[Rfam]
RNA sequence: UAGUAGUGUGACAUGCCCGUUGGGUUGCACUCUGAUGUUGUGUAUUUAAUUAUUAUUAAAUUACUUUGGGUAACAGGGUGUUACAAAAUC
Numbered sequence: 001u002a003g004u005a006g007u008g009u010g011a012c013a014u015g016c017c018c019g020u021u022g023g024g025u026u027g028c029a030c031u032c033u034g035a036u037g038u039u040g041u042g043u044a045u046u047u048a049a050u051u052a053u054u055a056u057u058a059a060a061u062u063a064c065u066u067u068g069g070g071u072a073a074c075a076g077g078g079u080g081u082u083a084c085a086a087a088a089u090c
Base pairs, nucleotide, nucleotide: 003089004088007085008084009083010082011081012080013079014078016077017076019074020073021072
Annotation: The record is a 90-nucleotide sequence from Medicago truncatula, which matches "MIR2617 microRNA precursor family" in Rfam. Rfam 15.1 lists 1,174 matches to the family in 2 species. Its family is annotated with RISC complex and miRNA-mediated post-transcriptional gene silencing in the Gene Ontology.